Notes
The family of this 232-nucleotide part of an RNA from Acetivibrio saccincola is "Bacterial large subunit ribosomal RNA". It scores 2930 bits against the family's covariance model. Lineage of the source: Bacteria > Bacillota > Clostridia > Acetivibrionales > Acetivibrio.
[Rfam]
RNA sequence: GAGUUACUGUAUGUAGCGAGGUUAAGUACUAAAGGUACGGAGCCGCAGGGAAACCGAGUCUUAAUAGGGCGAUUAAGUUACAUGCAGUAGACCCGAAACCGGGUGAUCUAUCCAUGGGCAGGUUGAAACGAGAGUAAAAUCUCGCGGAGGACCGAACCCGGAACCGUUGAAAAGGUUUGGGAUGACCUGUGGAUAGGGGUGAAAUGCCAAUCGAACUCGGAGAUAGCUGGUU
Numbered sequence: 001g002a003g004u005u006a007c008u009g010u011a012u013g014u015a016g017c018g019a020g021g022u023u024a025a026g027u028a029c030u031a032a033a034g035g036u037a038c039g040g041a042g043c044c045g046c047a048g049g050g051a052a053a054c055c056g057a058g059u060c061u062u063a064a065u066a067g068g069g070c071g072a073u074u075a076a077g078u079u080a081c082a083u084g085c086a087g088u089a090g091a092c093c094c095g096a097a098a099c100c101g102g103g104u105g106a107u108c109u110a111u112c113c114a115u116g117g118g119c120a121g122g123u124u125g126a127a128a129c130g131a132g133a134g135u136a137a138a139a140u141c142u143c144g145c146g147g148a149g150g151a152c153c154g155a156a157c158c159c160g161g162a163a164c165c166g167u168u169g170a171a172a173a174g175g176u177u178u179g180g181g182a183u184g185a186c187c188u189g190u191g192g193a194u195a196g197g198g199g200u201g202a203a204a205u206g207c208c209a210a211u212c213g214a215a216c217u218c219g220g221a222g223a224u225a226g227c228u229g230g231u232u
Stems, first nucleotide, its partner, number of pairs: 005089013020044004026038003048055002058070004092230002095227001099220006108196011119184001121153004129144005157181003161178005198208003
Dot-bracket structure: ....(((((((((((((..((((..(((.......)))..))))...((....))..((((.....))))......)))))))))))))..((.(...((((((...((((((((((((.((((....(((((......))))).....))))...(((.(((((........))))))))..).))))))))))).(((.....)))......))))))......).))..
For this family Rfam cites "The comparative RNA web (CRW) site: an online database of comparative sequence and structure information for ribosomal, intron, and other RNAs" (Cannone et al., BMC Bioinformatics, 2002).